This 118-nucleotide sequence from Falsibacillus pallidus belongs to the Rfam family "BsrF".
[Rfam]
RNA sequence: GCGAUGAGCUAAUUGCGUAAGUCGAUGAAUUGAGCUCUUGCAGCUCAGCUGGGAUGUGGCCCGGGAUAAUUAUCGCCGCAAUAUUUGCAACCAAGACGUCUGACGGAUUUCAGGCGUC
Numbered sequence: 001g002c003g004a005u006g007a008g009c010u011a012a013u014u015g016c017g018u019a020a021g022u023c024g025a026u027g028a029a030u031u032g033a034g035c036u037c038u039u040g041c042a043g044c045u046c047a048g049c050u051g052g053g054a055u056g057u058g059g060c061c062c063g064g065g066a067u068a069a070u071u072a073u074c075g076c077c078g079c080a081a082u083a084u085u086u087g088c089a090a091c092c093a094a095g096a097c098g099u100c101u102g103a104c105g106g107a108u109u110u111c112a113g114g115c116g117u118c
Base pairs, nucleotide, nucleotide: 013081014080015079016078017077023075024074025073026072028071029070030069031068034044035043049065050064051062052061053060095118096117097116098115099114100113101112102111103110

Overview
The base pairs follow the family's consensus structure, which was predicted with WAR.